[Rfam]
RNA sequence: UGACCGUAUCCGAAUCUGAUGACGGAUAUAAGAGGCCGGACGGACAGCCGGGUCAAAUGCCGA
Dot-bracket structure: (((((((((((............)))))).....................)))))........
Numbered sequence: 001u002g003a004c005c006g007u008a009u010c011c012g013a014a015u016c017u018g019a020u021g022a023c024g025g026a027u028a029u030a031a032g033a034g035g036c037c038g039g040a041c042g043g044a045c046a047g048c049c050g051g052g053u054c055a056a057a058u059g060c061c062g063a
Stems, first nucleotide, its partner, number of pairs: 001055005006029006
Rfam assigns this 63-nucleotide RNA sequence to the family "Streptococcus sRNA SpF59 (ldcC RNA)". The base pairs follow the family's consensus structure, which was predicted with mfold. It is one of the family's seed sequences. A reference for the family is Mann et al. (2012), "Control of virulence by small RNAs in Streptococcus pneumoniae", PLoS Pathog.